[Rfam]
RNA sequence: CAUCAGGUUGAUUCUGCCUGACGUAGAUGCUAGUUUCUAAGAUUAAGCCAUGCAUGUUAUGUGAACUCAGACGAGGGAACGACGAACGGCUCAGUAAUGUUGCGCUGAUUUGCUCUAUGCGGGAAGAAUAACCACGGUAACCUGUGGCUAAGAGUGUAGAAUAAGGUGCAAUCCUAUUAGUUUGUUGGUAGUGUAAAGGACUACCAAGGCAGUGAUGGGUAACGGGAAAUCAGGGUUUGAUUCCGGAGAGGGAGCCUGAGAGAUGGCUCCCACGUCCAAGGAUGGCAGCAGGCGCGAAAAUUGUCCACUCUUUUGAGAGGAGACAGUUAUGAAACGUGAGUAGAAGGGUCGAGUGUAAAAACCUUGACGUGAAGCAAUUGGAGGGCAAGUUUUGGUGCCAGCAGCCGCGGUAAUUCCAACUCCAAGAGUGUCUAUGGUGGAUGCUG
Numbered sequence: 001c002a003u004c005a006g007g008u009u010g011a012u013u014c015u016g017c018c019u020g021a022c023g024u025a026g027a028u029g030c031u032a033g034u035u036u037c038u039a040a041g042a043u044u045a046a047g048c049c050a051u052g053c054a055u056g057u058u059a060u061g062u063g064a065a066c067u068c069a070g071a072c073g074a075g076g077g078a079a080c081g082a083c084g085a086a087c088g089g090c091u092c093a094g095u096a097a098u099g100u101u102g103c104g105c106u107g108a109u110u111u112g113c114u115c116u117a118u119g120c121g122g123g124a125a126g127a128a129u130a131a132c133c134a135c136g137g138u139a140a141c142c143u144g145u146g147g148c149u150a151a152g153a154g155u156g157u158a159g160a161a162u163a164a165g166g167u168g169c170a171a172u173c174c175u176a177u178u179a180g181u182u183u184g185u186u187g188g189u190a191g192u193g194u195a196a197a198g199g200a201c202u203a204c205c206a207a208g209g210c211a212g213u214g215a216u217g218g219g220u221a222a223c224g225g226g227a228a229a230u231c232a233g234g235g236u237u238u239g240a241u242u243c244c245g246g247a248g249a250g251g252g253a254g255c256c257u258g259a260g261a262g263a264u265g266g267c268u269c270c271c272a273c274g275u276c277c278a279a280g281g282a283u284g285g286c287a288g289c290a291g292g293c294g295c296g297a298a299a300a301u302u303g304u305c306c307a308c309u310c311u312u313u314u315g316a317g318a319g320g321a322g323a324c325a326g327u328u329a330u331g332a333a334a335c336g337u338g339a340g341u342a343g344a345a346g347g348g349u350c351g352a353g354u355g356u357a358a359a360a361a362c363c364u365u366g367a368c369g370u371g372a373a374g375c376a377a378u379u380g381g382a383g384g385g386c387a388a389g390u391u392u393u394g395g396u397g398c399c400a401g402c403a404g405c406c407g408c409g410g411u412a413a414u415u416c417c418a419a420c421u422c423c424a425a426g427a428g429u430g431u432c433u434a435u436g437g438u439g440g441a442u443g444c445u446g
Base pairs, nucleotide, nucleotide: 004020005019006018007017008016022436023435024434025433026432027431028430029429030428031427033335034334035333036332037331039328040327041295047293048292049291051290052289053288056083057082060081061080062079066075067074090248091247092246099172100171101170102169103168104167105166106165109164110163114160115159116158117157118156119155120154132147133146134145135144136143137142173219174218175217180210181209182208185207186206187205188204189203190202191201192200223245224244225243226242227238228237229236230235250271251270252269253268254267255266273284274283275282276281301325303324304323305322309320310319311318312317348368349367350366351365352364353363378425379424380423381422382421383420392419393418394417395416401408402407